[Rfam]
RNA sequence: AUACUUACCUGGACGGGGUCGACGGGGGAUCAAGAAGCCUCGUGGCCUAGGCCAGUGUCCCACAUUGCACAUGGUGGGUGCGCAGGCUUACCAUCUCCCCAAGUGGGAGAGUGGACGUCAUAAUUUGUGGUAGAGGGGAUACGCGUUCGCGCGGCCCCUGC
Numbered sequence: 001a002u003a004c005u006u007a008c009c010u011g012g013a014c015g016g017g018g019u020c021g022a023c024g025g026g027g028g029a030u031c032a033a034g035a036a037g038c039c040u041c042g043u044g045g046c047c048u049a050g051g052c053c054a055g056u057g058u059c060c061c062a063c064a065u066u067g068c069a070c071a072u073g074g075u076g077g078g079u080g081c082g083c084a085g086g087c088u089u090a091c092c093a094u095c096u097c098c099c100c101a102a103g104u105g106g107g108a109g110a111g112u113g114g115a116c117g118u119c120a121u122a123a124u125u126u127g128u129g130g131u132a133g134a135g136g137g138g139a140u141a142c143g144c145g146u147u148c149g150c151g152c153g154g155c156c157c158c159u160g161c
Base pairs, nucleotide, nucleotide: 012119013118014117015116016048017047018046019045020044021043023042024041025040026039027038049089050088051087053086055083056082057081060078061077062075063074091114092113093112094110095109096108098106099105135159136158137157138156142153143152144151145150

Rfam assigns this 161-nucleotide sequence from Zea mays to the family "U1 spliceosomal RNA".
The family's consensus secondary structure is taken from published work.
By type it is a spliceosomal small nuclear RNA.
For this family Rfam cites "The uRNA database" (Zwieb, Nucleic Acids Res, 1997).
The source organism's lineage runs through Eukaryota, Viridiplantae, Petrosaviidae, Andropogonodae and Zea.